The family of this 291-nucleotide RNA sequence from Suricata suricatta is "Mason-Pfizer monkey virus packaging signal".
About the family: This family represents a group of sequences that are related to the Mason-Pfizer monkey virus (MPMV) packaging signal.
The family's RNA type in Rfam is cis-regulatory element.
NCBI's taxonomy places the organism under Eukaryota, Vertebrata, Teleostomi, Dipnotetrapodomorpha, Suricata.

[Rfam]
RNA sequence: UGGCGCCCAACGUGGGGCCUGAGUAUGAGGAGUCCAGUGAAGAACACCAAUCGAAGAUAAAAAGAUGAAAAAGUAGUGGCUGAAGUUUAAAGAAUUUCCAGGGAGACGGCUAUGUGGGAACCUGAUGCGUAGCCCAGGGCUCAGGUAAGUGAUCGGCCAUUAUGGGGCAGGAAAUAAGCCAGCAUGAUGAAGCUUUUGUAAAUAGUCUGACAGAGACCUUAAGGGCACGGGGAGUAAAGGUUAAGAGAAAGCAAUUAGAAUUUUUUCAGUUCCUCCAUGAAGUCUGUCCUU
Numbered sequence: 001u002g003g004c005g006c007c008c009a010a011c012g013u014g015g016g017g018c019c020u021g022a023g024u025a026u027g028a029g030g031a032g033u034c035c036a037g038u039g040a041a042g043a044a045c046a047c048c049a050a051u052c053g054a055a056g057a058u059a060a061a062a063a064g065a066u067g068a069a070a071a072a073g074u075a076g077u078g079g080c081u082g083a084a085g086u087u088u089a090a091a092g093a094a095u096u097u098c099c100a101g102g103g104a105g106a107c108g109g110c111u112a113u114g115u116g117g118g119a120a121c122c123u124g125a126u127g128c129g130u131a132g133c134c135c136a137g138g139g140c141u142c143a144g145g146u147a148a149g150u151g152a153u154c155g156g157c158c159a160u161u162a163u164g165g166g167g168c169a170g171g172a173a174a175u176a177a178g179c180c181a182g183c184a185u186g187a188u189g190a191a192g193c194u195u196u197u198g199u200a201a202a203u204a205g206u207c208u209g210a211c212a213g214a215g216a217c218c219u220u221a222a223g224g225g226c227a228c229g230g231g232g233a234g235u236a237a238a239g240g241u242u243a244a245g246a247g248a249a250a251g252c253a254a255u256u257a258g259a260a261u262u263u264u265u266u267c268a269g270u271u272c273c274u275c276c277a278u279g280a281a282g283u284c285u286g287u288c289c290u291u
Base pairs, nucleotide, nucleotide: 007030008029012026013025014024036051037047038046085128086127087125088124095120096118097117099114101111102110135170137168140166141165142164143163175221176220177219178217180215229266230265231264232263233262234261235260238256239255241253277290279288280287
The match comes from Rfam's covariance-model search (58 bits).